The family of this 300-nucleotide part of an RNA from Candidatus Caldarchaeum subterraneum is "Archaeal large subunit ribosomal RNA". The base pairs follow the family's consensus structure, which is taken from published work. For this family Rfam cites "Crystal structure of the ribosome at 5.5 A resolution" (Yusupov et al., Science, 2001).
RNA sequence: UGCUGGCUGCCUGAGGGGAAGGUGCUCCCAGUACGAGAGGAACGGAGCGCCGGGGCCAACGGUGUACCGGUUGUCCUACAGGGCAGUGCCGGGCAGCUGCGCCCCCGCGGAUAAGGGCUGAAAGCAUCUAAGCCCGAAGCCGCUCCCGAAAACAGGCAGCCACUCGCCGGGUAAGGGCUCGGCAACGGGCCUAUACCGGCGACGAGGGCUCCCGUAGAAGACGGGUUUGAUGGGGCGGGGGUGUACGGAUGGAGGCUUCGGCCGGACAUCCUCAGCCCGCCGCUCCCAACCGCCCGAGUG
Number, nucleotide and partner (000 for none) at each position: 001u000002g000003c000004u000005g161006g160007c159008u158009g157010c156011c155012u154013g000014a000015g147016g146017g145018g144019a000020a000021g051022g050023u049024g048025c047026u046027c045028c044029c000030a000031g000032u000033a000034c000035g000036a000037g000038a000039g000040g000041a000042a000043c000044g028045g027046a026047g025048c024049g023050c022051c021052g105053g104054g103055g102056c101057c000058a000059a000060c099061g098062g097063u000064g000065u000066a000067c092068c091069g090070g089071u088072u085073g084074u083075c082076c081077u000078a000079c000080a000081g076082g075083g074084c073085a072086g000087u000088g071089c070090c069091g068092g067093g000094c000095a000096g000097c062098u061099g060100c000101g056102c055103c054104c053105c052106c000107g000108c142109g141110g140111a000112u000113a000114a000115g135116g134117g133118c132119u131120g000121a000122a000123a000124g000125c000126a000127u000128c000129u000130a000131a119132g118133c117134c116135c115136g000137a000138a000139g000140c110141c109142g108143c000144u018145c017146c016147c015148g000149a000150a000151a000152a000153c000154a012155g011156g010157c009158a008159g007160c006161c005162a000163c000164u000165c000166g000167c000168c000169g000170g000171g000172u000173a000174a000175g000176g000177g000178c000179u000180c000181g000182g000183c000184a000185a000186c000187g000188g000189g000190c000191c000192u000193a000194u000195a000196c000197c000198g000199g000200c000201g000202a000203c000204g000205a000206g295207g294208g293209c292210u000211c225212c224213c223214g222215u000216a000217g000218a000219a000220g000221a000222c214223g213224g212225g211226u000227u000228u000229g000230a000231u288232g287233g286234g284235g283236c282237g281238g280239g278240g277241g276242u000243g000244u000245a000246c000247g271248g270249a269250u268251g267252g000253a000254g263255g000256c000257u000258u000259c000260g000261g000262c000263c254264g000265g000266a000267c251268a250269u249270c248271c247272u000273c000274a000275g000276c241277c240278c239279g000280c238281c237282g236283c235284u234285c000286c233287c232288a231289a000290c000291c000292g209293c208294c207295c206296g000297a000298g000299u000300g000